The family of this 72-nucleotide RNA sequence from Roseovarius bejariae is "Singlet oxygen resistance RNA X". Its family is annotated with response to photooxidative stress in the Gene Ontology. NCBI's taxonomy places the organism under Bacteria, Pseudomonadati, Pseudomonadota, Rhodobacterales, Roseovarius. For this family Rfam cites "Regulation of a polyamine transporter by the conserved 3' UTR-derived sRNA SorX confers resistance to singlet oxygen and organic hydroperoxides in Rhodobacter sphaeroides" (Peng et al., RNA Biol, 2016). Rfam describes the family as follows. SorX (RSs2461)like SorY is a singlet oxygen induced sRNA that counteracts oxidative stress by targeting mRNA for a transporter in Rhodobacter. It also has an impact on resistance against organic hydroperoxides. It targets SD sequence of potA mRNA via an aSD sequence.
RNA sequence: ACCCGUUGCAUGUGCGGGUCAUCACAUGCACCUCCCUGUUGGACUGACCCCGGCUUGCCCGGGGUCUUUUUU
Dot-bracket structure: .......(((((((........)))))))................((((((((.....))))))))......